Record summary
Shown here is a 146-nucleotide RNA from Pseudomonas oryzihabitans, a member of the family "PrrF RNA". The source organism's lineage runs through Bacteria, Pseudomonadati, Pseudomonadota, Pseudomonadaceae and Pseudomonas. On this family, see Wilderman et al., Proc Natl Acad Sci U S A 2004: "Identification of tandem duplicate regulatory small RNAs in Pseudomonas aeruginosa involved in iron homeostasis". Rfam 15.1 lists 107 matches to the family in 85 species.
RNA sequence: UUGACGAUGGAAUGAGAAUUGUUAUUAUUCAACUCAGCCGGUCGCGAGAUCGGUCGAUAACUGAAGGUCCAGCAGUUGGUCUUUCGGGUUAUCUCCUCAUCAGGCUAAUCACGGUUUUGGACCCGGCUCUGCCGGGUCUUUUUUUG
Numbered sequence: 001u002u003g004a005c006g007a008u009g010g011a012a013u014g015a016g017a018a019u020u021g022u023u024a025u026u027a028u029u030c031a032a033c034u035c036a037g038c039c040g041g042u043c044g045c046g047a048g049a050u051c052g053g054u055c056g057a058u059a060a061c062u063g064a065a066g067g068u069c070c071a072g073c074a075g076u077u078g079g080u081c082u083u084u085c086g087g088g089u090u091a092u093c094u095c096c097u098c099a100u101c102a103g104g105c106u107a108a109u110c111a112c113g114g115u116u117u118u119g120g121a122c123c124c125g126g127c128u129c130u131g132c133c134g135g136g137u138c139u140u141u142u143u144u145u146g
Base pairs, nucleotide, nucleotide: 035056037054038053039052040051041050042049043048061087062086063085064084065083066082067081069078095104096103097102120138121137122136123135124134125133126132127131